This 93-nucleotide sequence from Streptomyces echinoruber belongs to the Rfam family "Streptomyces RNA 3202".
[Rfam]
RNA sequence: CCAUGUCCCGACGCACCACCCCCCCGGCGCCGGGACUUCCUCCGAGCCGGGCUCCGGCGCCUCUCCCCCCAGGCGCCGAAGCCCGGCUCCUUG
Number, nucleotide and partner (000 for none) at each position: 001c000002c000003a000004u000005g036006u035007c034008c033009c032010g031011a000012c029013g028014c027015a000016c000017c000018a000019c000020c000021c000022c000023c000024c000025c000026g000027g014028c013029g012030c000031c010032g009033g008034g007035a006036c005037u000038u000039c000040c000041u000042c000043c000044g089045a088046g087047c086048c085049g084050g083051g082052c081053u080054c000055c078056g077057g076058c075059g074060c073061c072062u071063c000064u000065c000066c000067c000068c000069c000070c000071a062072g061073g060074c059075g058076c057077c056078g055079a000080a053081g052082c051083c050084c049085g048086g047087c046088u045089c044090c000091u000092u000093g000
Lineage of the source: Bacteria > Bacillati > Actinomycetota > Streptomycetaceae > Streptomyces. The base pairs follow the family's consensus structure. From the family's description: Identified by deep sequencing of transcriptome at the end of exponential growth phase.